[Rfam]
RNA sequence: CAUUGUUCUGAUCACCUGAAGAUCAGCCAUUAGAAAGGAAAGCUCAGCGAAGUCCUUUGGACCUGAUCGACUUAAUAUAGGAGCUACUGAUUUCAUUUUCUUUAGCCCAAUUCUCUGAGACAAUGAAGUAUACAAGUUCUUUCUUGGCUUUUCAGCUCUGCAUCAUU
Numbered sequence: 001c002a003u004u005g006u007u008c009u010g011a012u013c014a015c016c017u018g019a020a021g022a023u024c025a026g027c028c029a030u031u032a033g034a035a036a037g038g039a040a041a042g043c044u045c046a047g048c049g050a051a052g053u054c055c056u057u058u059g060g061a062c063c064u065g066a067u068c069g070a071c072u073u074a075a076u077a078u079a080g081g082a083g084c085u086a087c088u089g090a091u092u093u094c095a096u097u098u099u100c101u102u103u104a105g106c107c108c109a110a111u112u113c114u115c116u117g118a119g120a121c122a123a124u125g126a127a128g129u130a131u132a133c134a135a136g137u138u139c140u141u142u143c144u145u146g147g148c149u150u151u152u153c154a155g156c157u158c159u160g161c162a163u164c165a166u167u
Base pairs, nucleotide, nucleotide: 009069010068011067012066013065014064016117018115020114021113022112026106027105029103032101033100034099035098036097041093042092044090045089046088047087051085052084053083056081057080058079059078119167120166123163124162125161128142130140132138146157147156148155149154
Dot-bracket structure: ........[[[[[[.(.(.(((...((.(..(((((....((.((((...(((..((((....]]]]]]........)))).))).)))).))...))))).).)).....)))).).((..(((..(.(.(.....).).)...((((....))))...)))..))